[Rfam]
This 64-nucleotide RNA sequence from Pomacea canaliculata belongs to the Rfam family "mir-375 microRNA precursor family".
The family has 47 seed sequences and 824 matches in Rfam 15.1.
RNA sequence: AAUGACCCGAGCCGCUCGUAGCAAGGCAUCUUCACAAGUUUUGUUCGUUCGGCUCGCGUUACCA
Numbered sequence: 001a002a003u004g005a006c007c008c009g010a011g012c013c014g015c016u017c018g019u020a021g022c023a024a025g026g027c028a029u030c031u032u033c034a035c036a037a038g039u040u041u042u043g044u045u046c047g048u049u050c051g052g053c054u055c056g057c058g059u060u061a062c063c064a
Stems, first nucleotide, its partner, number of pairs: 003061001005059002008056006017047002021044004026039002
On this family, see Chen et al., Genes Dev 2005: "The developmental miRNA profiles of zebrafish as determined by small RNA cloning". Pairs were carried over by alignment from the consensus structure, which was predicted with RNAalifold.